[Rfam]
Rfam assigns this 151-nucleotide RNA sequence from Myotis brandtii to the family "Small nucleolar RNA SNORA44". It scores 95 bits against the family's covariance model.

RNA sequence: AUAUAUAUUUUUAUCUAUUUCAGAGAUGAAGGGAGAGGGGGAGGGAGAGAUAAAAACAUCAAUGCCAACUGCAUGCAAGAGCAACCUGGAGAGACUUUGACAGCUCAGGUCAGCAUAAUACCUGCAGCUGCCACUUGCCUUUCCUAUAUCU
Number, nucleotide and partner (000 for none) at each position: 001a000002u000003a000004u000005a000006u000007a059008u058009u055010u054011u053012u052013a051014u050015c049016u048017a000018u000019u000020u000021c000022a000023g000024a000025g000026a000027u000028g000029a000030a000031g000032g000033g000034a000035g000036a000037g000038g000039g000040g000041g000042a000043g000044g000045g000046a000047g000048a016049g015050a014051u013052a012053a011054a010055a009056a000057c000058a008059u007060c000061a000062a000063u000064g000065c000066c000067a000068a000069c000070u000071g000072c000073a000074u000075g000076c000077a000078a000079g000080a000081g000082c000083a000084a000085c000086c000087u000088g144089g143090a142091g141092a140093g139094a000095c000096u000097u000098u000099g000100a000101c000102a000103g131104c130105u000106c124107a123108g122109g121110u000111c000112a000113g000114c000115a000116u000117a000118a000119u000120a000121c109122c108123u107124g106125c000126a000127g000128c000129u000130g104131c103132c000133a000134c000135u000136u000137g000138c000139c093140u092141u091142u090143c089144c088145u000146a000147u000148a000149u000150c000151u000